Rfam assigns this 107-nucleotide RNA sequence to the family "MIR397 microRNA precursor family".

RNA sequence: UGAAUGAACAUCAUUGAGUGCAUCGUUGAUGUAAUUUUACUUAUUUUAUUCCAUUGUUGAAUUAAUUAAAGAAGUAUAUAUCAGCGUUGCAUUCAAUUAUGUUUUUC
Numbered sequence: 001u002g003a004a005u006g007a008a009c010a011u012c013a014u015u016g017a018g019u020g021c022a023u024c025g026u027u028g029a030u031g032u033a034a035u036u037u038u039a040c041u042u043a044u045u046u047u048a049u050u051c052c053a054u055u056g057u058u059g060a061a062u063u064a065a066u067u068a069a070a071g072a073a074g075u076a077u078a079u080a081u082c083a084g085c086g087u088u089g090c091a092u093u094c095a096a097u098u099a100u101g102u103u104u105u106u107c
Stems, first nucleotide, its partner, number of pairs: 006104006013097010024086005030080003